[Rfam]
RNA: c-di-AMP riboswitch aptamer (ydaO/yuaA leader)
Organism: Gloeothece citriformis
RNA sequence: AGAAUAAGUCAGCCGAGUCUGGUUAAUCAGUUUAACUGGAGCGGGGGAACCACCCAAAGGGGCGCAUUAAGGAUUUUUCCUGGUUAAUGGGUAAAAAAACUAGGUUAUCCUUGAAGGGCAACUCUCAGCCCUAGUCCGUCAGCUAACUCCGUAGGCAUUGAGAGGAGACUGA
Numbered sequence: 001a002g003a004a005u006a007a008g009u010c011a012g013c014c015g016a017g018u019c020u021g022g023u024u025a026a027u028c029a030g031u032u033u034a035a036c037u038g039g040a041g042c043g044g045g046g047g048a049a050c051c052a053c054c055c056a057a058a059g060g061g062g063c064g065c066a067u068u069a070a071g072g073a074u075u076u077u078u079c080c081u082g083g084u085u086a087a088u089g090g091g092u093a094a095a096a097a098a099a100c101u102a103g104g105u106u107a108u109c110c111u112u113g114a115a116g117g118g119c120a121a122c123u124c125u126c127a128g129c130c131c132u133a134g135u136c137c138g139u140c141a142g143c144u145a146a147c148u149c150c151g152u153a154g155g156c157a158u159u160g161a162g163a164g165g166a167g168a169c170u171g172a
Base pairs, nucleotide, nucleotide: 012156013155014154018040019039020038021037022036023035024034025033026032041152042151043150044149045148046147051059060137061136062135068113069112070111071110072109073108074107116131117130118129119128
Dot-bracket structure: ...........(((...(((((((((.....)))))))))((((((....(.......)(((.....(((((((................................)))))))..((((........))))...))).........)))))).)))................